[Rfam]
RNA sequence: CCAGGGGGACGACCCCCUGGAACCCCCGUCACUGUGCUGACCCAGGGGGACGACCCCC
Dot-bracket structure: ((((((((....))))))))........................(((((....)))))